Background
The record is a 68-nucleotide sequence from Azoarcus sp. KH32C, which matches "int-alpA RNA" in Rfam. Rfam's curators write: Acidobacteria (1 example), Planctomycetes (1 example), Proteobacteria. The base pairs follow the family's consensus structure, which is taken from published work. By type it is a small RNA. The organism belongs to Azoarcus, within Bacteria.
[Rfam]
RNA sequence: GCCGCGCCUAGGACGGCCAUCCGAAAACGGGGAAACCUUCGCCCCGCUGGCGCGGCACCCAACGAAGG
Numbered sequence: 001g002c003c004g005c006g007c008c009u010a011g012g013a014c015g016g017c018c019a020u021c022c023g024a025a026a027a028c029g030g031g032g033a034a035a036c037c038u039u040c041g042c043c044c045c046g047c048u049g050g051c052g053c054g055g056c057a058c059c060c061a062a063c064g065a066a067g068g
Stems, first nucleotide, its partner, number of pairs: 001056008011022003028046005036068005